[Rfam]
RNA sequence: AGGUUUUUAGUCUCUUUUGGAAUUUGUCCAGGAUGGGUUUCUAGCUAGAAGUUCUCU
Numbered sequence: 001a002g003g004u005u006u007u008u009a010g011u012c013u014c015u016u017u018u019g020g021a022a023u024u025u026g027u028c029c030a031g032g033a034u035g036g037g038u039u040u041c042u043a044g045c046u047a048g049a050a051g052u053u054c055u056c057u
Stems, first nucleotide, its partner, number of pairs: 035054008
Dot-bracket structure: ..................................((((((((....))))))))...
Description:
Rfam assigns this 57-nucleotide RNA sequence from Turnera subulata to the family "U7 small nuclear RNA". The organism belongs to Turnera, within Eukaryota. The base pairs follow the family's consensus structure, which was predicted with PFOLD.